[Rfam]
RNA: rpsB sRNA
RNA sequence: CACACACGGACUUUGGUGUCUGCCCGGGAGAAAUCCGGCUGAAACCUCCGGUGGCGGUCAGAUAAAACCCCGAGAAGCGCAAGCCUUUCGUUCCGGUUUUCUCAAAGCCGUCAAGUGUCCGUGGAGGUUAACCGGAAAGGAAAUAGAGAA
Number, nucleotide and partner (000 for none) at each position: 001c126002a000003c124004a000005c123006a122007c121008g120009g119010a118011c117012u000013u000014u000015g046016g045017u000018g000019u000020c000021u000022g000023c037024c000025c000026g035027g000028g000029a000030g000031a000032a000033a000034u000035c026036c000037g023038g000039c000040u000041g000042a000043a000044a000045c016046c015047u000048c000049c000050g000051g000052u000053g112054g111055c110056g109057g108058u107059c000060a000061g000062a000063u000064a000065a000066a000067a000068c000069c000070c000071c000072g000073a000074g000075a000076a000077g000078c000079g000080c000081a000082a000083g000084c000085c000086u000087u000088u000089c000090g000091u000092u000093c000094c000095g000096g000097u000098u000099u000100u000101c000102u000103c000104a000105a000106a000107g058108c057109c056110g055111u054112c053113a000114a000115g000116u000117g011118u010119c009120c008121g007122u006123g005124g003125a000126g001127g000128u000129u000130a000131a000132c000133c000134g000135g000136a000137a000138a000139g000140g000141a000142a000143a000144u000145a000146g000147a000148g000149a000150a000